The family of this 316-nucleotide RNA from Hymenoscyphus albidus is "Group I catalytic intron". The match comes from Rfam's covariance-model search (94 bits). Gene Ontology term of the family: Group I intron splicing.
[Rfam]
RNA sequence: AUUACGUAAUUAGGGAAAUUUAGUUACUGUCAUAAUGAACUUAUGGCUAUAAACCUUCAAAUUGCGGGAAGUCCCUAAAGCAAUUUCAACCAAACUAACCUAGUAAUAGAGUUUGUGGCACAGGUAAUGACUCGUGAUAUGGUAAAAUCGAAAUUGAUUAUGCUUAUUUUUAUAAUAAGGAUAAAUGGGUAAUCCGCAGCCAAGCAGCUGAUAUAAGAUAUUAGGUGUGCAGUUCAUCGACUAAAUGUAGGUUGGCUGUAUGGAUAAAGAUCCAUAUAGGCUUAAGAUAUAGUCAAGCCCCAUUCGAAAGAAUGCA
Numbered sequence: 001a002u003u004a005c006g007u008a009a010u011u012a013g014g015g016a017a018a019u020u021u022a023g024u025u026a027c028u029g030u031c032a033u034a035a036u037g038a039a040c041u042u043a044u045g046g047c048u049a050u051a052a053a054c055c056u057u058c059a060a061a062u063u064g065c066g067g068g069a070a071g072u073c074c075c076u077a078a079a080g081c082a083a084u085u086u087c088a089a090c091c092a093a094a095c096u097a098a099c100c101u102a103g104u105a106a107u108a109g110a111g112u113u114u115g116u117g118g119c120a121c122a123g124g125u126a127a128u129g130a131c132u133c134g135u136g137a138u139a140u141g142g143u144a145a146a147a148u149c150g151a152a153a154u155u156g157a158u159u160a161u162g163c164u165u166a167u168u169u170u171u172a173u174a175a176u177a178a179g180g181a182u183a184a185a186u187g188g189g190u191a192a193u194c195c196g197c198a199g200c201c202a203a204g205c206a207g208c209u210g211a212u213a214u215a216a217g218a219u220a221u222u223a224g225g226u227g228u229g230c231a232g233u234u235c236a237u238c239g240a241c242u243a244a245a246u247g248u249a250g251g252u253u254g255g256c257u258g259u260a261u262g263g264a265u266a267a268a269g270a271u272c273c274a275u276a277u278a279g280g281c282u283u284a285a286g287a288u289a290u291a292g293u294c295a296a297g298c299c300c301c302a303u304u305c306g307a308a309a310g311a312a313u314g315c316a
Stems, first nucleotide, its partner, number of pairs: 012019001052253005058247002063198006073189003199233002204228003210222005237295001239294005255281003259276005301314005